[Rfam]
RNA sequence: CGAGCAAGUGACGUUAAAACAGACAGGGACAUCUGCACUCCAUUGGAGUAUGAUGACUCGUCUAUGGGAAUCUCUCUGAUGCUUA
Numbered sequence: 001c002g003a004g005c006a007a008g009u010g011a012c013g014u015u016a017a018a019a020c021a022g023a024c025a026g027g028g029a030c031a032u033c034u035g036c037a038c039u040c041c042a043u044u045g046g047a048g049u050a051u052g053a054u055g056a057c058u059c060g061u062c063u064a065u066g067g068g069a070a071u072c073u074c075u076c077u078g079a080u081g082c083u084u085a
Base pairs, nucleotide, nucleotide: 002084003083004082005081006080

Shown here is an 85-nucleotide RNA sequence from Tetracentron sinense, a member of the family "Small nucleolar RNA R44/J54/Z268 family".
Rfam classes the family as a C/D-box small nucleolar RNA.
The base pairs follow the family's consensus structure, which was predicted with PFOLD.